[Rfam]
RNA: TPP riboswitch aptamer (THI element)
Organism: Geodermatophilus sabuli
RNA sequence: AACACACAGCAGGGGAGCGCUUCGGCGCUGAGAGUGCGGGAGACCGCAGACCCUCGAACCUGAUCCGGGUCAUGCCGGCGCAGGGAGUCUGGAGGAACACCAUG
Numbered sequence: 001a002a003c004a005c006a007c008a009g010c011a012g013g014g015g016a017g018c019g020c021u022u023c024g025g026c027g028c029u030g031a032g033a034g035u036g037c038g039g040g041a042g043a044c045c046g047c048a049g050a051c052c053c054u055c056g057a058a059c060c061u062g063a064u065c066c067g068g069g070u071c072a073u074g075c076c077g078g079c080g081c082a083g084g085g086a087g088u089c090u091g092g093a094g095g096a097a098c099a100c101c102a103u104g
Base pairs, nucleotide, nucleotide: 007091008090009089011054012053013052014051017028018027019026020025035048036047037046038045039044059084060083061082062081065078066077067076068075